[Rfam]
RNA: RAGATH-18 RNA
RNA sequence: ACUAUGAAGUGUACUUGAACUUGUGAGUAGAUAUGACGUUUGUCAAUCGAAAGCAUACACAAUGAAAUAGUAA
Numbered sequence: 001a002c003u004a005u006g007a008a009g010u011g012u013a014c015u016u017g018a019a020c021u022u023g024u025g026a027g028u029a030g031a032u033a034u035g036a037c038g039u040u041u042g043u044c045a046a047u048c049g050a051a052a053g054c055a056u057a058c059a060c061a062a063u064g065a066a067a068u069a070g071u072a073a
Stems, first nucleotide, its partner, number of pairs: 001071005009060005022055003030048003034045004